Rfam assigns this 204-nucleotide RNA to the family "MIR159 microRNA precursor family".
Nucleotides: 204
Base pairs, nucleotide, nucleotide: 013190014189015188016187017186018185019184020183024179025178026177027176028175029174036167058138059137061135062134067129068128069127070126075121
Number, partner (000 for none) and nucleotide at each position: 001000a002000c003000g004000a005000u006000g007000g008000a009000a010000g011000u012000a013190g014189a015188g016187c017186u018185c019184c020183u021000u022000a023000a024179a025178g026177u027176u028175c029174a030000a031000a032000c033000a034000u035000g036167a037000g038000u039000u040000g041000a042000g043000c044000a045000g046000g047000g048000u049000a050000a051000a052000g053000a054000a055000a056000a057000g058138c059137u060000g061135c062134u063000a064000a065000g066000c067129u068128a069127u070126g071000g072000a073000u074000c075121c076000c077000a078000u079000a080000a081000g082000c083000c084000c085000u086000a087000a088000u089000c090000c091000u092000u093000g094000u095000a096000a097000a098000g099000u100000a101000a102000a103000a104000a105000a106000g107000g108000a109000u110000u111000u112000g113000g114000u115000u116000a117000u118000a119000u120000g121075g122000a123000u124000u125000g126070c127069a128068u129067a130000u131000c132000u133000c134062a135061g136000g137059a138058g139000c140000u141000u142000u143000a144000a145000c146000u147000u148000g149000c150000c151000c152000u153000u154000u155000a156000a157000u158000g159000g160000c161000u162000u163000u164000u165000a166000c167036u168000c169000u170000u171000c172000u173000u174029u175028g176027g177026a178025u179024u180000g181000a182000a183020g184019g185018g186017a187016g188015c189014u190013c191000u192000a193000c194000a195000u196000c197000u198000u199000c200000u201000u202000u203000c204000a